The record is a 72-nucleotide RNA sequence from Carlito syrichta, which matches "Small nucleolar RNA SNORD27" in Rfam. The family has 8 seed sequences and 218 matches in Rfam 15.1. It scores 58 bits against the family's covariance model. On this family, see Tycowski et al., Nature 1996: "A mammalian gene with introns instead of exons generating stable RNA products".

RNA sequence: GCUCCACGAUAAACACAAAAUAACAAGCAUGUGACUGAACUUACACAUGAUGCCAUCUUACUACCGAGAAGU
Dot-bracket structure: ((((...............................................................)).))
Numbered sequence: 001g002c003u004c005c006a007c008g009a010u011a012a013a014c015a016c017a018a019a020a021u022a023a024c025a026a027g028c029a030u031g032u033g034a035c036u037g038a039a040c041u042u043a044c045a046c047a048u049g050a051u052g053c054c055a056u057c058u059u060a061c062u063a064c065c066g067a068g069a070a071g072u
Stems, first nucleotide, its partner, number of pairs: 001072002003069002